[Rfam]
RNA sequence: CAAUAUCUUCAGGGCAGGGUGCAAUUCCCGACCGGCGGUAUAGCCCGCGAGCCACAUUGUGGUUGACUUGGUGAGAUUCCAAGGCCGACAGUAAAGUCUGGAUGGAAGAAGAUAGAA
Numbered sequence: 001c002a003a004u005a006u007c008u009u010c011a012g013g014g015c016a017g018g019g020u021g022c023a024a025u026u027c028c029c030g031a032c033c034g035g036c037g038g039u040a041u042a043g044c045c046c047g048c049g050a051g052c053c054a055c056a057u058u059g060u061g062g063u064u065g066a067c068u069u070g071g072u073g074a075g076a077u078u079c080c081a082a083g084g085c086c087g088a089c090a091g092u093a094a095a096g097u098c099u100g101g102a103u104g105g106a107a108g109a110a111g112a113u114a115g116a117a
Base pairs, nucleotide, nucleotide: 004114005113006112007111008110009109010108017029018028019027031097032096033087034086035048036047037046038045043085044084051063052062053061067083068082069081070080071079089100090099091098
This 117-nucleotide RNA sequence from Crassaminicella thermophila belongs to the Rfam family "FMN riboswitch aptamer (RFN element)". It scores 124 bits against the family's covariance model. The organism belongs to Crassaminicella, within Bacteria. Rfam links the family to the GO term FMN binding.